[Rfam]
RNA sequence: CACGAAGAAUUGGGGUGCCGUUUGGCUGAGAAAUACCCAUUGAACCUGCUCUGGUUAGGACCAGCGAAGGAAAUUCUCAUCAUUAAUAC
Numbered sequence: 001c002a003c004g005a006a007g008a009a010u011u012g013g014g015g016u017g018c019c020g021u022u023u024g025g026c027u028g029a030g031a032a033a034u035a036c037c038c039a040u041u042g043a044a045c046c047u048g049c050u051c052u053g054g055u056u057a058g059g060a061c062c063a064g065c066g067a068a069g070g071a072a073a074u075u076c077u078c079a080u081c082a083u084u085a086a087u088a089c
Base pairs, nucleotide, nucleotide: 006077007076008075009074010073011039012038013037014036016033017026018025019024045070046069047068051064052063053062054061
RNA: TPP riboswitch aptamer (THI element)